[Rfam]
RNA sequence: GGAAACUGCCCACUACGAAGCUGAAAGCCAGGGCUAGGGCUCCGACGUGCCGGUAAUGACUUGUAGUUUGGAGAUCUGGUUUGCUGUAUGCCACUUUGACUGUACGCCCGCGCUAAAGCUCGGUAUCAAUAUGGACACCCGGGGGGAGCCCGGGGGGCUCAGGUUGGUUAACUAGGGCUGGACCGGGCCAGAGAGGAAACUCAACAGCCAGAAAAGUCCCGUGGAGUUGUGAUGGGAUCGCGCAUAAAGAAUGGGAGCUGCUUUGGGGCAGACCUGAAGUCACCGGCGAUCCAAGCUACCGGCACGUUU
Numbered sequence: 001g002g003a004a005a006c007u008g009c010c011c012a013c014u015a016c017g018a019a020g021c022u023g024a025a026a027g028c029c030a031g032g033g034c035u036a037g038g039g040c041u042c043c044g045a046c047g048u049g050c051c052g053g054u055a056a057u058g059a060c061u062u063g064u065a066g067u068u069u070g071g072a073g074a075u076c077u078g079g080u081u082u083g084c085u086g087u088a089u090g091c092c093a094c095u096u097u098g099a100c101u102g103u104a105c106g107c108c109c110g111c112g113c114u115a116a117a118g119c120u121c122g123g124u125a126u127c128a129a130u131a132u133g134g135a136c137a138c139c140c141g142g143g144g145g146g147a148g149c150c151c152g153g154g155g156g157g158c159u160c161a162g163g164u165u166g167g168u169u170a171a172c173u174a175g176g177g178c179u180g181g182a183c184c185g186g187g188c189c190a191g192a193g194a195g196g197a198a199a200c201u202c203a204a205c206a207g208c209c210a211g212a213a214a215a216g217u218c219c220c221g222u223g224g225a226g227u228u229g230u231g232a233u234g235g236g237a238u239c240g241c242g243c244a245u246a247a248a249g250a251a252u253g254g255g256a257g258c259u260g261c262u263u264u265g266g267g268g269c270a271g272a273c274c275u276g277a278a279g280u281c282a283c284c285g286g287c288g289a290u291c292c293a294a295g296c297u298a299c300c301g302g303c304a305c306g307u308u309u
Base pairs, nucleotide, nucleotide: 001043002042003041004022006020007019027040028039029038045307046306047305048304049303050302051301052300053299054298058297060295061294062293063290064289066287067286068285070284071283076276078274079273080272081271082270083269084268085267087265088264091254092253093252095250096249101246102245103244105242106241107240108236109235111234112233114231115230117228118227119226120225121224124223125222126221127166128165129164130163132161133160134159136157138155139154140153142151143150144149167173175219176218177217178216179215184211186209187208188207193202194201195200
Dot-bracket structure: ((((.((...........)).)....(((........)))))).((((((((((...(.(((((.(((.((....(.((((((((.((..(((.((....(((.(((((.((.((.(((((..(((((((.(((.(.(((.(((....))).))).).))).))))(.....).(((((....(.(((....(((....)))....))).)...))))).)))))))).)).))))...))).)))..)).))).........)).)))))))).)......))))).))..))).)))))))))))..
This 309-nucleotide RNA sequence from Zootermopsis nevadensis belongs to the Rfam family "Metazoan signal recognition particle RNA". The match comes from Rfam's covariance-model search (97 bits). The family has 91 seed sequences and 383,523 matches in Rfam 15.1. Rfam's curators write: The signal recognition particle (SRP) is a universally conserved ribonucleoprotein. Taxonomically the source falls in Zootermopsis (Eukaryota, Ecdysozoa, Insecta, Termopsinae).